[Rfam]
RNA sequence: AACCGUUAUCCAUUGGGGGAUAACGAAGGCCCGUUAGGGGGCGGAUGG
Numbered sequence: 001a002a003c004c005g006u007u008a009u010c011c012a013u014u015g016g017g018g019g020a021u022a023a024c025g026a027a028g029g030c031c032c033g034u035u036a037g038g039g040g041g042c043g044g045a046u047g048g
Base pairs, nucleotide, nucleotide: 004025005024006023007022008021009020010019011018029042030041031040032039
This 48-nucleotide RNA belongs to the Rfam family "gut-2 RNA". Rfam's curators put it in the seed alignment. Rfam classes the family as a small RNA.